[Rfam]
RNA sequence: AACACGCUCCUUAGAUCCACCCUUGGGACAUGUGCUCAAGACCGACCUGCAUGGCAGCACCGCUGUGUGGCCCUGUAUUGUGUUGUCCAGCAACUUUGUUGGUUGUACAUCGAGGGUGAUUGAGUCAUUGGCGUGUGAUAUAAAUAUACCUCAGUCUCAGGUCCUACACUGACCACACUGUCCACUCCGUGUGGCAUUUGUGUGUGGUCAGUUUGACCUGUGACUUGGACAGU
Number, nucleotide and partner (000 for none) at each position: 001a000002a136003c135004a134005c133006g132007c131008u130009c000010c124011u123012u122013a121014g120015a000016u000017c000018c118019a117020c116021c115022c114023u113024u112025g111026g088027g087028a086029c085030a084031u000032g000033u000034g000035c082036u000037c080038a079039a000040g000041a076042c075043c000044g073045a000046c000047c070048u069049g068050c067051a000052u000053g066054g000055c065056a064057g063058c062059a000060c000061c000062g058063c057064u056065g055066u053067g050068u049069g048070g047071c000072c000073c044074u000075g042076u041077a000078u000079u038080g037081u000082g035083u000084u030085g029086u028087c027088c026089a000090g106091c105092a104093a103094c102095u101096u000097u000098g000099u000100u000101g095102g094103u093104u092105g091106u090107a000108c000109a000110u000111c025112g024113a023114g022115g021116g020117u019118g018119a000120u014121u013122g012123a011124g010125u000126c000127a000128u000129u000130g008131g007132c006133g005134u004135g003136u002137g000138a000139u000140a000141u000142a000143a000144a000145u000146a000147u000148a000149c000150c228151u227152c000153a225154g224155u000156c222157u000158c220159a219160g218161g217162u000163c000164c000165u000166a000167c000168a212169c211170u210171g209172a208173c207174c206175a205176c000177a000178c000179u204180g203181u202182c000183c200184a000185c000186u194187c193188c000189g000190u000191g000192u000193g187194g186195c000196a000197u000198u000199u000200g183201u000202g181203u180204g179205u175206g174207g173208u172209c171210a170211g169212u168213u000214u000215g000216a000217c161218c160219u159220g158221u000222g156223a000224c154225u153226u000227g151228g150229a000230c000231a000232g000233u000